[Rfam]
RNA sequence: GGCUGCCCCAGUGCAGUGCUGUUUACAGCUCAUUGAUCACAACCAGUUACAGAUUUCUUUGCUCCUUUUCCACUCCCACUGCUUCACUUGACCAGCCUAAA
Number, nucleotide and partner (000 for none) at each position: 001g097002g096003c095004u094005g093006c000007c090008c000009c000010a088011g000012u000013g085014c000015a080016g079017u078018g077019c000020u000021g075022u000023u000024u000025a000026c000027a063028g062029c061030u000031c000032a058033u000034u000035g000036a000037u000038c000039a000040c000041a000042a000043c000044c000045a000046g000047u000048u000049a000050c000051a000052g000053a000054u000055u000056u000057c000058u032059u000060u000061g029062c028063u027064c000065c000066u000067u000068u000069u000070c000071c000072a000073c000074u000075c021076c000077c018078a017079c016080u015081g000082c000083u000084u000085c013086a000087c000088u010089u000090g007091a000092c000093c005094a004095g003096c002097c001098u000099a000100a000101a000
This 101-nucleotide sequence from Callithrix jacchus belongs to the Rfam family "Y RNA". Rfam classes the family as a non-coding RNA gene. For this family Rfam cites "Conserved features of Y RNAs: a comparison of experimentally derived secondary structures" (Teunissen et al., Nucleic Acids Res, 2000). Pairs were carried over by alignment from the consensus structure, which is taken from published work. Y RNAs are components of the Ro ribonucleoprotein particle (Ro RNP), in association with Ro60 and La proteins. The Y RNAs and Ro60 and La proteins are well conserved, but the function of the Ro RNP is not known. In humans the RNA component can be one of four small RNAs -- hY1, hY3, hY4 and hY5. These small RNAs are predicted to fold into a conserved secondary structure containing three stem structures. The largest of the four, hY1, contains an additional hairpin. This family includes a significant number of annotated pseudogenes and the model is expected to discriminate poorly between real and Y RNA related pseudogenes.